[Rfam]
RNA sequence: UGUCUCCUCCAUCCUCCUCCUAAGGUGGAACUUGGCGCAACCCUUUCAGGUUGCGCCUUUUUUU
Numbered sequence: 001u002g003u004c005u006c007c008u009c010c011a012u013c014c015u016c017c018u019c020c021u022a023a024g025g026u027g028g029a030a031c032u033u034g035g036c037g038c039a040a041c042c043c044u045u046u047c048a049g050g051u052u053g054c055g056c057c058u059u060u061u062u063u064u
Stems, first nucleotide, its partner, number of pairs: 008029006034057008
RNA: Betaproteobacteria toxic small RNA